[Rfam]
RNA: Small nucleolar RNA ACA64
Organism: Bucco capensis
RNA sequence: ACAGUCUGAAAAUCACUUGUGGUCUCCUGUGGCCCCUGGUGCGAUAACUGUGCCGACAGCAGAGGGAGCAUUAAACUCAUCGCCCAUGGUAAAGUGUGGAGAGUGAUCCCCAUGUUCCUAUAAUC
Numbered sequence: 001a002c003a004g005u006c007u008g009a010a011a012a013u014c015a016c017u018u019g020u021g022g023u024c025u026c027c028u029g030u031g032g033c034c035c036c037u038g039g040u041g042c043g044a045u046a047a048c049u050g051u052g053c054c055g056a057c058a059g060c061a062g063a064g065g066g067a068g069c070a071u072u073a074a075a076c077u078c079a080u081c082g083c084c085c086a087u088g089g090u091a092a093a094g095u096g097u098g099g100a101g102a103g104u105g106a107u108c109c110c111c112a113u114g115u116u117c118c119u120a121u122a123a124u125c
Base pairs, nucleotide, nucleotide: 006050008048010045014041015040016039021034022033023032024031065118067116068115069114070113071112077106078105079104081103085098086097087096